The family of this 126-nucleotide RNA from Bucco capensis is "Small nucleolar RNA ACA64". Its family is annotated with RNA processing and nucleolus in the Gene Ontology. Rfam 15.1 lists 9,537 matches to the family in 620 species. On this family, see Schattner et al., RNA 2006: "A computational screen for mammalian pseudouridylation guide H/ACA RNAs". The organism belongs to Bucco, within Eukaryota.
[Rfam]
RNA sequence: GUCCCUAGCUAUUCCCAAGGAGGUCUCCUGUGUCCACUGGUGCAAUAACUGUGCCCACAGCAGAGGGAGCAUUAAACUCAUUGCCCACGGGAAAGUGUGGGGAGUGAUACCCAUGUUCCUAGAAUC
Numbered sequence: 001g002u003c004c005c006u007a008g009c010u011a012u013u014c015c016c017a018a019g020g021a022g023g024u025c026u027c028c029u030g031u032g033u034c035c036a037c038u039g040g041u042g043c044a045a046u047a048a049c050u051g052u053g054c055c056c057a058c059a060g061c062a063g064a065g066g067g068a069g070c071a072u073u074a075a076a077c078u079c080a081u082u083g084c085c086c087a088c089g090g091g092a093a094a095g096u097g098u099g100g101g102g103a104g105u106g107a108u109a110c111c112c113a114u115g116u117u118c119c120u121a122g123a124a125u126c
Stems, first nucleotide, its partner, number of pairs: 006051003010047001013044001014040001019035003066119001068117005078107005086099003